terC RNA: a 54-nucleotide sequence from Pseudolabrys sp. Root1462. The family's consensus secondary structure is taken from published work. It is annotated as a cis-regulatory element. The source organism's lineage runs through Bacteria, Pseudomonadati, Pseudomonadota, Xanthobacteraceae and Pseudolabrys. A search with the family's covariance model found it, with a score of 56 bits.

RNA sequence: UCGUCAGGCCGGGCCCCUCUGGCAGUCAUGCGACUGCGAUGUCGGACUGAAAUC
Numbered sequence: 001u002c003g004u005c006a007g008g009c010c011g012g013g014c015c016c017c018u019c020u021g022g023c024a025g026u027c028a029u030g031c032g033a034c035u036g037c038g039a040u041g042u043c044g045g046a047c048u049g050a051a052a053u054c
Base pairs, nucleotide, nucleotide: 006048007047009045010044011043012042022037023036024035025034026033027032